Record summary:
The family of this 67-nucleotide sequence from Drosophila kikkawai is "mir-6 microRNA precursor family". The family has 36 seed sequences and 58 matches in Rfam 15.1. Its family is annotated with miRNA-mediated post-transcriptional gene silencing and RISC complex in the Gene Ontology. NCBI's taxonomy places the organism under Eukaryota, Eumetazoa, Eumetabola, Aparaglossata, Sophophora. The base pairs follow the family's consensus structure, which was predicted with PFOLD. Rfam's curators write: This family consists of the microRNA (miRNA) precursor mir-6 which appears to be Drosophila specific. Animal miRNAs are transcribed as ~70nt precursors and subsequently processed by the Dicer enzyme to give a ~22nt product.
[Rfam]
RNA sequence: AAGUAGAGAGAAUAGCUGCUGCGCUGUAUGUUUGCCAUCUAUAUCACAGUGGCUGUUCUUUUUGUAC
Numbered sequence: 001a002a003g004u005a006g007a008g009a010g011a012a013u014a015g016c017u018g019c020u021g022c023g024c025u026g027u028a029u030g031u032u033u034g035c036c037a038u039c040u041a042u043a044u045c046a047c048a049g050u051g052g053c054u055g056u057u058c059u060u061u062u063u064g065u066a067c
Stems, first nucleotide, its partner, number of pairs: 004064002007061007016052006023045001025043004